[Rfam]
RNA sequence: ACACGGCCGUAUCGCGAGAUUUCUCGUCGCUUCCGCCCCGACGCAACUUCCCCGGUGGCGGGUCGGGAGCGACGGGGAAUCCCGCGAGACGGACAGGACGGC
Numbered sequence: 001a002c003a004c005g006g007c008c009g010u011a012u013c014g015c016g017a018g019a020u021u022u023c024u025c026g027u028c029g030c031u032u033c034c035g036c037c038c039c040g041a042c043g044c045a046a047c048u049u050c051c052c053c054g055g056u057g058g059c060g061g062g063u064c065g066g067g068a069g070c071g072a073c074g075g076g077g078a079a080u081c082c083c084g085c086g087a088g089a090c091g092g093a094c095a096g097g098a099c100g101g102c
Stems, first nucleotide, its partner, number of pairs: 010089001012087005018081002021078015037062004042057003
RNA: mraW RNA
Organism: Brachybacterium nesterenkovii